This 124-nucleotide sequence from Thiemannella venezuelensis belongs to the Rfam family "c-di-GMP-II-GAG riboswitch aptamer". For this family Rfam cites "Bioinformatic analysis of riboswitch structures uncovers variant classes with altered ligand specificity" (Weinberg et al., Proc Natl Acad Sci U S A, 2017). The base pairs follow the family's consensus structure, which is taken from published work. The family is grouped with related families in Rfam's "c-di-GMP_II riboswitch clan". A search with the family's covariance model found it, with a score of 44 bits. Gene Ontology terms of the family: regulation of gene expression and cyclic-di-GMP binding. NCBI's taxonomy places the organism under Bacteria, Actinomycetes, Streptosporangiales, Streptosporangiaceae, Thiemannella.
RNA sequence: GUUCGUCGGGUACGCGAUGAUCCGAGACGGCCUCAACGACGCGAUGCGGCAACCUGCUCGCGCACGUAGGAAUUCGGCCGCCUAGCCGCCUCGGGGAGCCAAUGGCGAGACCGAACCCACACCC
Numbered sequence: 001g002u003u004c005g006u007c008g009g010g011u012a013c014g015c016g017a018u019g020a021u022c023c024g025a026g027a028c029g030g031c032c033u034c035a036a037c038g039a040c041g042c043g044a045u046g047c048g049g050c051a052a053c054c055u056g057c058u059c060g061c062g063c064a065c066g067u068a069g070g071a072a073u074u075c076g077g078c079c080g081c082c083u084a085g086c087c088g089c090c091u092c093g094g095g096g097a098g099c100c101a102a103u104g105g106c107g108a109g110a111c112c113g114a115a116c117c118c119a120c121a122c123c124c
Stems, first nucleotide, its partner, number of pairs: 001124001005120002008118004014099002022094005028088002076112002079107004
Dot-bracket structure: (...((.((((..((......(((((.((..............................................[[.[[[[....)).)))))...))....]]]]...]]..))))))...)